[Rfam]
RNA sequence: UAUGCAGAGUUAUUCUUGUAUUUGCAAUUUGCAUCCAAUGCACAUUGCCUUAGUUUACUCUGCGAAAUUGUACAUUGGGGAAGAUGGGCAGUUGUGUUUUAUAAUUGGUUGAAAUCUUUCAACAAUCAUCUUCCCUACAUCC
Numbered sequence: 001u002a003u004g005c006a007g008a009g010u011u012a013u014u015c016u017u018g019u020a021u022u023u024g025c026a027a028u029u030u031g032c033a034u035c036c037a038a039u040g041c042a043c044a045u046u047g048c049c050u051u052a053g054u055u056u057a058c059u060c061u062g063c064g065a066a067a068u069u070g071u072a073c074a075u076u077g078g079g080g081a082a083g084a085u086g087g088g089c090a091g092u093u094g095u096g097u098u099u100u101a102u103a104a105u106u107g108g109u110u111g112a113a114a115u116c117u118u119u120c121a122a123c124a125a126u127c128a129u130c131u132u133c134c135c136u137a138c139a140u141c142c
Stems, first nucleotide, its partner, number of pairs: 004063007017042005077136011091123004
The record is a 142-nucleotide RNA from Cuscuta australis, which matches "small nucleolar RNA snoR135" in Rfam.
The match comes from Rfam's covariance-model search (84 bits).
The family's RNA type in Rfam is H/ACA-box small nucleolar RNA.
Taxonomically the source falls in Cuscuta sect. Cleistogrammica (Eukaryota, Euphyllophyta, Magnoliopsida, Cuscuta subgen. Grammica).
On this family, see Chen and Wu, Nucleic Acids Res 2009: "Mining small RNA sequencing data: a new approach to identify small nucleolar RNAs in Arabidopsis".